RNA sequence: ACCAUCCUUUUCUUGGGGUUGCGUUACUGCCCAAUGAACGUUUAGUGAGGACAGUACUGCUAACGCCUAAACAACACGCACGCAUCUUUUAAAGCUUCGCUUUAACAUGGUGCAAUUUUUGGAACA
Numbered sequence: 001a002c003c004a005u006c007c008u009u010u011u012c013u014u015g016g017g018g019u020u021g022c023g024u025u026a027c028u029g030c031c032c033a034a035u036g037a038a039c040g041u042u043u044a045g046u047g048a049g050g051a052c053a054g055u056a057c058u059g060c061u062a063a064c065g066c067c068u069a070a071a072c073a074a075c076a077c078g079c080a081c082g083c084a085u086c087u088u089u090u091a092a093a094g095c096u097u098c099g100c101u102u103u104a105a106c107a108u109g110g111u112g113c114a115a116u117u118u119u120u121g122g123a124a125c126a
Base pairs, nucleotide, nucleotide: 006018007017008016009015021060022059023058026055027054028053029052031050032049038046039045082113083112084111085110086109090104091103092102093101094100095099

About this RNA:
A member of the RNA family "U4atac minor spliceosomal RNA" from Monodelphis domestica, 126 nucleotides long. Rfam's curators put it in the seed alignment. Rfam 15.1 lists 1,648 matches to the family in 818 species. The literature on the family includes a 2005 paper in RNA by Lorkovic et al., "Evolutionary conservation of minor U12-type spliceosome between plants and humans". Pairs were carried over by alignment from the consensus structure, which is taken from published work.